The family of this 37-nucleotide RNA sequence from Peromyscus maniculatus is "Renin stability regulatory element (REN-SRE)". A search with the family's covariance model found it, with a score of 46 bits. Gene Ontology terms of the family: RNA destabilization and protein binding. Lineage of the source: Eukaryota > Chordata > Mammalia > Boreoeutheria > Peromyscus maniculatus. Rfam describes the family as follows. This family represents a cis-acting element in the 3'-UTR of the renin (REN) gene called renin stability regulatory element (REN-SRE) which acts to regulate renin production. REN-SRE is thought to destabilise the mRNA, promoting degradation of the sequence. It has been found that a number of proteins bind to the REN-SRE to stabilise the mRNA and promote translation. The family has 13 seed sequences and 120 matches in Rfam 15.1. Pairs were carried over by alignment from the consensus structure, which is taken from published work. On this family, see Adams et al., J Biol Chem 2003: "HADHB, HuR, and CP1 Bind to the Distal 3'-Untranslated Region of Human Renin mRNA and Differentially Modulate Renin Expression".

RNA sequence: CUGCUUUGAGGAAAGACAGAAUAAAGACUUCCUAUUU
Number, nucleotide and partner (000 for none) at each position: 001c019002u018003g000004c000005u016006u015007u014008g000009a000010g000011g000012a000013a000014a007015g006016a005017c000018a002019g001020a000021a000022u000023a000024a000025a000026g000027a000028c000029u000030u000031c000032c000033u000034a000035u000036u000037u000